[Rfam]
RNA sequence: UAAAAGGGUCGGUUGGCUAUGUAUGCCACGCCCGCCCCUCGUUGGUGGGUGCUGUAUGGCUAUCAAGACAUAUGGCCGACAUAAUUUGUGGGAACCGUUAGGGUUGGCUCGCUCGGCCGACCCUCCA
Numbered sequence: 001u002a003a004a005a006g007g008g009u010c011g012g013u014u015g016g017c018u019a020u021g022u023a024u025g026c027c028a029c030g031c032c033c034g035c036c037c038c039u040c041g042u043u044g045g046u047g048g049g050u051g052c053u054g055u056a057u058g059g060c061u062a063u064c065a066a067g068a069c070a071u072a073u074g075g076c077c078g079a080c081a082u083a084a085u086u087u088g089u090g091g092g093a094a095c096c097g098u099u100a101g102g103g104u105u106g107g108c109u110c111g112c113u114c115g116g117c118c119g120a121c122c123c124u125c126c127a
Stems, first nucleotide, its partner, number of pairs: 008080005014028004029051008052075007100124008109116002
RNA: U11 spliceosomal RNA